Shown here is a 188-nucleotide RNA sequence from Vibrio aerogenes, a member of the family "Molybdenum/Tungsten riboswitch aptamer (Moco RNA motif)". On this family, see Regulski et al., Mol Microbiol 2008: "in molybdenum cofactor and tungsten cofactor metabolism". It scores 77 bits against the family's covariance model.
RNA sequence: UGAUUGCCAUAGCUCCGAGUCUGAUGAGCUAAGUCACUCACUCUGCCGGUGCCGUUCAGGUGUGUUCGGCACAAGAACAGAGCGGAAGAAGAUAGGCACUUCAGACCAGUGGCCGAAUUUUGGCCCAAGGGUAAGGUUGGAAAUGAUCUUGCCUCCCGUGUUUGGAAAGGUGUUCCAUGGCUCUACAA
Numbered sequence: 001u002g003a004u005u006g007c008c009a010u011a012g013c014u015c016c017g018a019g020u021c022u023g024a025u026g027a028g029c030u031a032a033g034u035c036a037c038u039c040a041c042u043c044u045g046c047c048g049g050u051g052c053c054g055u056u057c058a059g060g061u062g063u064g065u066u067c068g069g070c071a072c073a074a075g076a077a078c079a080g081a082g083c084g085g086a087a088g089a090a091g092a093u094a095g096g097c098a099c100u101u102c103a104g105a106c107c108a109g110u111g112g113c114c115g116a117a118u119u120u121u122g123g124c125c126c127a128a129g130g131g132u133a134a135g136g137u138u139g140g141a142a143a144u145g146a147u148c149u150u151g152c153c154u155c156c157c158g159u160g161u162u163u164g165g166a167a168a169g170g171u172g173u174u175c176c177a178u179g180g181c182u183c184u185a186c187a188a
Stems, first nucleotide, its partner, number of pairs: 003182001011174003015170002019106006026099001028097002033093003111125005129154011155165002